The record is a 191-nucleotide sequence from Calyptomena viridis, which matches "U2 spliceosomal RNA" in Rfam. A search with the family's covariance model found it, with a score of 77 bits. The literature on the family includes a 1997 paper in Nucleic Acids Res by Zwieb, "The uRNA database". The source organism's lineage runs through Eukaryota, Bilateria, Amniota, Archosauria and Calyptomena. Rfam links the family to the GO terms mRNA branch site recognition, pre-mRNA branch point binding and U2 snRNP. Rfam 15.1 lists 71,512 matches to the family in 2,642 species. It is annotated as a spliceosomal small nuclear RNA.
RNA sequence: UUUGCCUCUUGACCUUUUGGCAAAGAUCAAGUGCAGCGUAUGUUUUUAUCAGUUUAAUAUCUGUUAUGUCCUCAACUGGAGGAUUUGAUAUUAAAUGAGUUUGGGGACUGGGAAAUGUACUCGGAGCUGACGCCAUCCUCUCCAAGCGUGAAGCCGGCUAUUGCUGUGUCUUCCAGAGUGGUGUGAAAAGA
Numbered sequence: 001u002u003u004g005c006c007u008c009u010u011g012a013c014c015u016u017u018u019g020g021c022a023a024a025g026a027u028c029a030a031g032u033g034c035a036g037c038g039u040a041u042g043u044u045u046u047u048a049u050c051a052g053u054u055u056a057a058u059a060u061c062u063g064u065u066a067u068g069u070c071c072u073c074a075a076c077u078g079g080a081g082g083a084u085u086u087g088a089u090a091u092u093a094a095a096u097g098a099g100u101u102u103g104g105g106g107a108c109u110g111g112g113a114a115a116u117g118u119a120c121u122c123g124g125a126g127c128u129g130a131c132g133c134c135a136u137c138c139u140c141u142c143c144a145a146g147c148g149u150g151a152a153g154c155c156g157g158c159u160a161u162u163g164c165u166g167u168g169u170c171u172u173c174c175a176g177a178g179u180g181g182u183g184u185g186a187a188a189a190g191a
Base pairs, nucleotide, nucleotide: 007026008025009024013020014019047066048065050063051062052061068084069083070082071081072080073079111143112142113141115139117137123134124133126131146184147183148182149181151179154176156174157173